mir-675 microRNA precursor family: a 73-nucleotide sequence from Equus caballus. Gene Ontology terms of the family: miRNA-mediated post-transcriptional gene silencing and RISC complex. The literature on the family includes a 2007 paper in RNA by Cai and Cullen, "The imprinted H19 noncoding RNA is a primary microRNA precursor". The base pairs follow the family's consensus structure, which was predicted with RNAalifold.
RNA sequence: CCCAGGGGCUGGCGCGGAGAGGGCCCACAGUGCACUCAGUGACACUGUAUGCCUUCACCGCUCAGCCCCUGGG
Numbered sequence: 001c002c003c004a005g006g007g008g009c010u011g012g013c014g015c016g017g018a019g020a021g022g023g024c025c026c027a028c029a030g031u032g033c034a035c036u037c038a039g040u041g042a043c044a045c046u047g048u049a050u051g052c053c054u055u056c057a058c059c060g061c062u063c064a065g066c067c068c069c070u071g072g073g
Stems, first nucleotide, its partner, number of pairs: 001073007009065004014061004019056006027048006